[Rfam]
RNA sequence: GACUCAUCGUCGCUGAAUCCUAGUGAGCGGGGGAACCAAUCUACAGGGGUGAAUCCCAGGCAAUGCUUGGGUAGGGUUACUCUCAUGACCCGAAUCCGUCAGCUAACCUCGUAAGCGCAAAUGAGAGGAGGG
Numbered sequence: 001g002a003c004u005c006a007u008c009g010u011c012g013c014u015g016a017a018u019c020c021u022a023g024u025g026a027g028c029g030g031g032g033g034a035a036c037c038a039a040u041c042u043a044c045a046g047g048g049g050u051g052a053a054u055c056c057c058a059g060g061c062a063a064u065g066c067u068u069g070g071g072u073a074g075g076g077u078u079a080c081u082c083u084c085a086u087g088a089c090c091c092g093a094a095u096c097c098g099u100c101a102g103c104u105a106a107c108c109u110c111g112u113a114a115g116c117g118c119a120a121a122u123g124a125g126a127g128g129a130g131g132g
Base pairs, nucleotide, nucleotide: 011117012116013115014114018026019025027112028111029110030109031108032107037046047097048096049095055071056070057069058068074091075090076089077088
A member of the RNA family "c-di-AMP riboswitch aptamer (ydaO/yuaA leader)" from Laceyella tengchongensis, 132 nucleotides long. Rfam links the family to the GO terms regulation of gene expression and cyclic-di-AMP binding. From the family's description: This family represents a conserved RNA structure found upstream of the ydaO and yuaA genes in Bacillus subtilis and related genes in other bacteria. The base pairs follow the family's consensus structure.